[Rfam]
RNA sequence: UUAUCCCUGUGGCUUCUGAGGAGGCCUAUUUUGGUUGUGACAUCUGGGAGAGUUGAUGAAUGCCAAAGGCUUUGAUGGGGAAAA
Numbered sequence: 001u002u003a004u005c006c007c008u009g010u011g012g013c014u015u016c017u018g019a020g021g022a023g024g025c026c027u028a029u030u031u032u033g034g035u036u037g038u039g040a041c042a043u044c045u046g047g048g049a050g051a052g053u054u055g056a057u058g059a060a061u062g063c064c065a066a067a068g069g070c071u072u073u074g075a076u077g078g079g080g081a082a083a084a
Base pairs, nucleotide, nucleotide: 001084002083004081005080006079007078
The family of this 84-nucleotide RNA sequence from Carlito syrichta is "Small nucleolar RNA SNORD74". On this family, see Galardi et al., Mol Cell Biol 2002: "Purified box C/D snoRNPs are able to reproduce site-specific 2'-O-methylation of target RNA in vitro". The family's RNA type in Rfam is C/D-box small nucleolar RNA. The family is grouped with related families in Rfam's "SNORD74 clan".